[Rfam]
The family of this 117-nucleotide RNA from Leersia perrieri is "Small nucleolar RNA Z278".
Rfam's curators write: snoZ278 is a C/D box small nucleolar RNA. Its methylation guide targets have not been reported.
Rfam links the family to the GO terms nucleolus and RNA processing.
It is annotated as a C/D-box small nucleolar RNA.
Rfam 15.1 lists 1,130 matches to the family in 214 species.
On this family, see Chen et al., Nucleic Acids Res 2003: "The high diversity of snoRNAs in plants: identification and comparative study of 120 snoRNA genes from Oryza sativa".
RNA sequence: GCCCGUGAUGAGCUGCCUAAUGUUUAGAGGAUGUUGUUAGCUCAAGUUCCUGUUUAUCAGGAAGAACCUACUUGUAGCGCUACUGCAUUCACAAGAUAUCAAUAGGCUUCCUGAGGU
Numbered sequence: 001g002c003c004c005g006u007g008a009u010g011a012g013c014u015g016c017c018u019a020a021u022g023u024u025u026a027g028a029g030g031a032u033g034u035u036g037u038u039a040g041c042u043c044a045a046g047u048u049c050c051u052g053u054u055u056a057u058c059a060g061g062a063a064g065a066a067c068c069u070a071c072u073u074g075u076a077g078c079g080c081u082a083c084u085g086c087a088u089u090c091a092c093a094a095g096a097u098a099u100c101a102a103u104a105g106g107c108u109u110c111c112u113g114a115g116g117u
Base pairs, nucleotide, nucleotide: 001117002116003115048062049061050060051059052058